Record summary: Shown here is a 70-nucleotide sequence from Alligator sinensis, a member of the family "Epstein-Barr virus stable intronic sequence RNA 2". Taxonomically the source falls in Alligator (Eukaryota, Eumetazoa, Teleostomi, Archosauria). By type it is a non-coding RNA gene. The family has 2 seed sequences and 171 matches in Rfam 15.1.
[Rfam]
RNA sequence: GGGCUGGGGAUGCUGUUCCCUGCUCAGCUCUGUGCUUGCAGAGCUGAGCAGGGAACAGGCUCCCCAGCCU
Numbered sequence: 001g002g003g004c005u006g007g008g009g010a011u012g013c014u015g016u017u018c019c020c021u022g023c024u025c026a027g028c029u030c031u032g033u034g035c036u037u038g039c040a041g042a043g044c045u046g047a048g049c050a051g052g053g054a055a056c057a058g059g060c061u062c063c064c065c066a067g068c069c070u
Base pairs, nucleotide, nucleotide: 001070002069003068004067005066006065007064008063009062012060013059014057015056016055017054018053019052020051021050022049023048024047025046026045027044030043031042033040034039